Shown here is a 204-nucleotide RNA sequence from Leptidea sinapis, a member of the family "Small nucleolar RNA U3". The match comes from Rfam's covariance-model search (114 bits). Small nucleolar RNAs (snoRNAs) are involved in the processing and modification of rRNA in the nucleolus. There are two main classes of snoRNAs: the box C/D class, and the box H/ACA class. U3 snoRNA is a member of the box C/D class. Indeed, the box C/D element is a subset of the six short sequence elements found in all U3 snoRNAs, namely boxes A, A', B, C, C', and D. The U3 snoRNA secondary structure is characterised by a small 5' domain (with boxes A and A'), and a larger 3' domain (with boxes B, C, C', and D), the two domains being linked by a single-stranded hinge. The base pairs follow the family's consensus structure, which is taken from published work. For this family Rfam cites "The uRNA database" (Zwieb, Nucleic Acids Res, 1997). Rfam classes the family as a C/D-box small nucleolar RNA. Taxonomically the source falls in Leptidea (Eukaryota, Pancrustacea, Allotriocarida, Neoptera).
[Rfam]
RNA sequence: AAGACCUUACUUCAUAGGAUCAUUUCUAUAGUAAACUCUUCACGAGAACCUUCACACUAAGUGAGGAGUAGACGGUCACGAUGAAGAAGCGUGGCGCGGCACCCUGAGCGUGAGACAGGCGAGGACCCUCGGUCCUCAGCCCUCGAUGAUCGUUCAUUCUUCUGCUUGCAGGAGAGCGUAGGGUGCUGUCGCUGUCUGAGUGGC
Numbered sequence: 001a002a003g004a005c006c007u008u009a010c011u012u013c014a015u016a017g018g019a020u021c022a023u024u025u026c027u028a029u030a031g032u033a034a035a036c037u038c039u040u041c042a043c044g045a046g047a048a049c050c051u052u053c054a055c056a057c058u059a060a061g062u063g064a065g066g067a068g069u070a071g072a073c074g075g076u077c078a079c080g081a082u083g084a085a086g087a088a089g090c091g092u093g094g095c096g097c098g099g100c101a102c103c104c105u106g107a108g109c110g111u112g113a114g115a116c117a118g119g120c121g122a123g124g125a126c127c128c129u130c131g132g133u134c135c136u137c138a139g140c141c142c143u144c145g146a147u148g149a150u151c152g153u154u155c156a157u158u159c160u161u162c163u164g165c166u167u168g169c170a171g172g173a174g175a176g177c178g179u180a181g182g183g184u185g186c187u188g189u190c191g192c193u194g195u196c197u198g199a200g201u202g203g204c
Stems, first nucleotide, its partner, number of pairs: 001040004007034005015028005051065005075204005094192003097188009108153003118141003123135004157176008